[Rfam]
RNA sequence: AGGCCCGAAGAGAGAGGCAGGGUCUGAUCCACAGACUCUAUGGCAGCUGUUGAUCAGGCAUUGCCUCUCUCUUUCUCUCCG
Numbered sequence: 001a002g003g004c005c006c007g008a009a010g011a012g013a014g015a016g017g018c019a020g021g022g023u024c025u026g027a028u029c030c031a032c033a034g035a036c037u038c039u040a041u042g043g044c045a046g047c048u049g050u051u052g053a054u055c056a057g058g059c060a061u062u063g064c065c066u067c068u069c070u071c072u073u074u075c076u077c078u079c080c081g
Base pairs, nucleotide, nucleotide: 008073009072010071011070012069013068014067015066016065017064018063019062020061022059024057025056026055027054028053029052032049033048034047

Annotation:
Rfam assigns this 81-nucleotide RNA from Myotis davidii to the family "mir-574 microRNA precursor family". The family's consensus secondary structure was predicted with RNAalifold. The literature on the family includes a 2007 paper in Cancer Res by Lui et al., "Patterns of known and novel small RNAs in human cervical cancer". It scores 95 bits against the family's covariance model. The family has 6 seed sequences and 4,084 matches in Rfam 15.1.